[Rfam]
RNA sequence: UCACCGGGACGGCCCGGUGAGAUCUAUACCCAGCGGGACGGCCCG
Numbered sequence: 001u002c003a004c005c006g007g008g009a010c011g012g013c014c015c016g017g018u019g020a021g022a023u024c025u026a027u028a029c030c031c032a033g034c035g036g037g038a039c040g041g042c043c044c045g
Stems, first nucleotide, its partner, number of pairs: 001020008034045004
RNA: Guanidine-II riboswitch aptamer (mini-ykkC)
Organism: Methylovorus glucosotrophus